RNA sequence: UUGGAGUGGUAAUGAUCUGGUUAGAGGGUCUCUGAGCUUUUCCUUGAGGAUCUUUGAAACCACCUGAUAUACUCUCCA
Numbered sequence: 001u002u003g004g005a006g007u008g009g010u011a012a013u014g015a016u017c018u019g020g021u022u023a024g025a026g027g028g029u030c031u032c033u034g035a036g037c038u039u040u041u042c043c044u045u046g047a048g049g050a051u052c053u054u055u056g057a058a059a060c061c062a063c064c065u066g067a068u069a070u071a072c073u074c075u076c077c078a
Base pairs, nucleotide, nucleotide: 003077004076005075006074007071008070015068016067017066019064020063021062024054025053026052027051029049030048031047032046034044036042
RNA: Small nucleolar RNA ZL8
Organism: Saimiri boliviensis